[Rfam]
RNA sequence: UGCCUUUAUGUGUUGCCCUUUCAUUGUUCCAUUAGUGAUUGGGGUGUCAAAUAAGGCAUACAAUGACACUUGUGACUGUCUGGUUAAAUGAGUUUCAAGUGACUCUUUUAUACAAACAGCUGCAAGGACACAU
Numbered sequence: 001u002g003c004c005u006u007u008a009u010g011u012g013u014u015g016c017c018c019u020u021u022c023a024u025u026g027u028u029c030c031a032u033u034a035g036u037g038a039u040u041g042g043g044g045u046g047u048c049a050a051a052u053a054a055g056g057c058a059u060a061c062a063a064u065g066a067c068a069c070u071u072g073u074g075a076c077u078g079u080c081u082g083g084u085u086a087a088a089u090g091a092g093u094u095u096c097a098a099g100u101g102a103c104u105c106u107u108u109u110a111u112a113c114a115a116a117c118a119g120c121u122g123c124a125a126g127g128a129c130a131c132a133u
Stems, first nucleotide, its partner, number of pairs: 002057005011049002014046004018041001021038005069126004076119004084115002088111002090108002092103002
RNA: Small nucleolar RNA SNORA13
Organism: Perca flavescens